[Rfam]
RNA sequence: AGCUUUUCGAAUCCGUGCUGAGAUUUCAUCAGGCAUCAACCCAUUAGUGCUGACCAGACUUUCAAGAUAAGUGAAUUU
Dot-bracket structure: .(.(((.(..(((..((..(((.(((..((.....................))..)))))).)).)))..).))).).
Numbered sequence: 001a002g003c004u005u006u007u008c009g010a011a012u013c014c015g016u017g018c019u020g021a022g023a024u025u026u027c028a029u030c031a032g033g034c035a036u037c038a039a040c041c042c043a044u045u046a047g048u049g050c051u052g053a054c055c056a057g058a059c060u061u062u063c064a065a066g067a068u069a070a071g072u073g074a075a076u077u078u
Stems, first nucleotide, its partner, number of pairs: 002077001004075003008071001011068003016064002020061003024058003029053002